[Rfam]
RNA sequence: GAGUUGGGUAGUCGUUGCAUUUCCACACUGCCACGCGACAGUUCGUGGCCUGCUUGAUUUGUGAAAAUGCACCAACUAUCUGACAU
Numbered sequence: 001g002a003g004u005u006g007g008g009u010a011g012u013c014g015u016u017g018c019a020u021u022u023c024c025a026c027a028c029u030g031c032c033a034c035g036c037g038a039c040a041g042u043u044c045g046u047g048g049c050c051u052g053c054u055u056g057a058u059u060u061g062u063g064a065a066a067a068u069g070c071a072c073c074a075a076c077u078a079u080c081u082g083a084c085a086u
Base pairs, nucleotide, nucleotide: 005083006081007080008079009078010077011076012075014073016071017070018069019068020067021066022065024063025062026061029057030049031048032047033046034045
Dot-bracket structure: ....((((((((.(.(((((((.(((..((((((..........))))).......)...))).))))))).).))))))).)...

Rfam assigns this 86-nucleotide RNA sequence from Hymenolepis diminuta to the family "mir-4989 microRNA precursor family". The match comes from Rfam's covariance-model search (52 bits). Its family is annotated with RISC complex and miRNA-mediated post-transcriptional gene silencing in the Gene Ontology.